The family of this 107-nucleotide RNA from Medicago truncatula is "MIR162_1 microRNA precursor family". The family has 36 seed sequences and 270 matches in Rfam 15.1. Its family is annotated with miRNA-mediated post-transcriptional gene silencing and RISC complex in the Gene Ontology. For this family Rfam cites "MicroRNAs in plants" (Reinhart et al., Genes Dev, 2002).

[Rfam]
Nucleotides: 107
Stems, first nucleotide, its partner, number of pairs: 013095003018090003022086004027081007036072003
Number, partner (000 for none) and nucleotide at each position: 001000a002000a003000g004000u005000u006000c007000g008000u009000c010000a011000c012000u013095g014094g015093a016000u017000g018090c019089a020088g021000c022086g023085g024084u025083u026000c027081a028080u029079c030078g031077a032076u033075c034000u035000g036072u037071u038070c039000c040000u041000g042000a043000a044000u045000u046000u047000u048000g049000u050000u051000u052000g053000u054000c055000u056000c057000g058000u059000a060000a061000a062000a063000c064000a065000a066000a067000c068000a069000u070038g071037a072036a073000u074000c075033g076032g077031u078030c079029g080028a081027u082000a083025a084024a085023c086022c087000u088020c089019u090018g091000c092000a093015u094014c095013c096000a097000g098000c099000g100000c101000u102000c103000a104000c105000u106000u107000u